[Rfam]
RNA: Bacterial small subunit ribosomal RNA, nucleotides 1 to 529
Organism: Victivallis vadensis
RNA sequence: UUUACGGAGAGUUUGAUCCUGGCUCAGAACGAACGCUGGCGGCAUGGAUUAGGCAUGCAAGUUGAACGAACUCCUUCGGGAGUGAGUAGCGAAAGGGUGAGGAACGCGUGAGUAAUCUGCCCAUAAGUUGGGAACAACAGUUGGAAACGACUGCUAAUACCGAAUGUGGCUAUUGACCCGCAUGGGUUUUUGGCUAAAGAUUUAUCGCUUAUGGAUGAGCUCGCGUCCCAUUAGCUAGUUGGUGAGGUAACGGCCCACCAAGGCUACGAUGGGUAGCUGGUCUGAGAGGAUGGUCAGCCACACUGGGACUGAGACACUGCCCAGACUCCUACGGGAGGCUGCAGUCGAGAAUCUUGGGCAAUGCGCGAAAGCGUGACCCAGCAAUGCCGCGUGCAUGAUGAAGGCCCUCGGGUCGUAAAAUGCUGUCUCCCGUGACGAAUAAUGACGGUAGCGGGGAAGGAAGCCACGGCUAACUACGUGCCAGCAGCCGCGGUAAUACGUAGGUGGCGAGCGUUGUUCGGAUUUAUUG
Numbered sequence: 001u002u003u004a005c006g007g008a009g010a011g012u013u014u015g016a017u018c019c020u021g022g023c024u025c026a027g028a029a030c031g032a033a034c035g036c037u038g039g040c041g042g043c044a045u046g047g048a049u050u051a052g053g054c055a056u057g058c059a060a061g062u063u064g065a066a067c068g069a070a071c072u073c074c075u076u077c078g079g080g081a082g083u084g085a086g087u088a089g090c091g092a093a094a095g096g097g098u099g100a101g102g103a104a105c106g107c108g109u110g111a112g113u114a115a116u117c118u119g120c121c122c123a124u125a126a127g128u129u130g131g132g133a134a135c136a137a138c139a140g141u142u143g144g145a146a147a148c149g150a151c152u153g154c155u156a157a158u159a160c161c162g163a164a165u166g167u168g169g170c171u172a173u174u175g176a177c178c179c180g181c182a183u184g185g186g187u188u189u190u191u192g193g194c195u196a197a198a199g200a201u202u203u204a205u206c207g208c209u210u211a212u213g214g215a216u217g218a219g220c221u222c223g224c225g226u227c228c229c230a231u232u233a234g235c236u237a238g239u240u241g242g243u244g245a246g247g248u249a250a251c252g253g254c255c256c257a258c259c260a261a262g263g264c265u266a267c268g269a270u271g272g273g274u275a276g277c278u279g280g281u282c283u284g285a286g287a288g289g290a291u292g293g294u295c296a297g298c299c300a301c302a303c304u305g306g307g308a309c310u311g312a313g314a315c316a317c318u319g320c321c322c323a324g325a326c327u328c329c330u331a332c333g334g335g336a337g338g339c340u341g342c343a344g345u346c347g348a349g350a351a352u353c354u355u356g357g358g359c360a361a362u363g364c365g366c367g368a369a370a371g372c373g374u375g376a377c378c379c380a381g382c383a384a385u386g387c388c389g390c391g392u393g394c395a396u397g398a399u400g401a402a403g404g405c406c407c408u409c410g411g412g413u414c415g416u417a418a419a420a421u422g423c424u425g426u427c428u429c430c431c432g433u434g435a436c437g438a439a440u441a442a443u444g445a446c447g448g449u450a451g452c453g454g455g456g457a458a459g460g461a462a463g464c465c466a467c468g469g470c471u472a473a474c475u476a477c478g479u480g481c482c483a484g485c486a487g488c489c490g491c492g493g494u495a496a497u498a499c500g501u502a503g504g505u506g507g508c509g510a511g512c513g514u515u516g517u518u519c520g521g522a523u524u525u526a527u528u529g
Stems, first nucleotide, its partner, number of pairs: 009025005027519004032515006039390006045383002052346003056343003061090003066087002070083005097301003106226008116218002121214007129163001131161002138153006169194004175188001177186003199206002227273003234264003239261006246254001276298004280291004303324005326337004354380001356379003362375005393423004403414004427460001428456006437446001463508005474503005484491002